The record is a 166-nucleotide sequence from Spirodela intermedia, which matches "small nucleolar RNA snoR143" in Rfam. NCBI's taxonomy places the organism under Eukaryota, Embryophyta, Tracheophyta, Liliopsida, Spirodela.
RNA sequence: UUGCGCUCAUUAAAUAGUUAAGAUCUUUCCAUUUUAGUAGUAAGAUCUUCAGACGUUGCGCAUAGAAAAGAAGCUGUUUGUUCAGCAGCGGCCAGACAACCGCAGGGAUGGAUCCACAGGUUUCAGGUUAAAAGUACCAGUUGCCUACUGAUUCCAUCGUACAGUU
Numbered sequence: 001u002u003g004c005g006c007u008c009a010u011u012a013a014a015u016a017g018u019u020a021a022g023a024u025c026u027u028u029c030c031a032u033u034u035u036a037g038u039a040g041u042a043a044g045a046u047c048u049u050c051a052g053a054c055g056u057u058g059c060g061c062a063u064a065g066a067a068a069a070g071a072a073g074c075u076g077u078u079u080g081u082u083c084a085g086c087a088g089c090g091g092c093c094a095g096a097c098a099a100c101c102g103c104a105g106g107g108a109u110g111g112a113u114c115c116a117c118a119g120g121u122u123u124c125a126g127g128u129u130a131a132a133a134g135u136a137c138c139a140g141u142u143g144c145c146u147a148c149u150g151a152u153u154c155c156a157u158c159g160u161a162c163a164g165u166u
Stems, first nucleotide, its partner, number of pairs: 002062005014056002018052002021049001022047006029040001031038001105160001107158006122143001126137001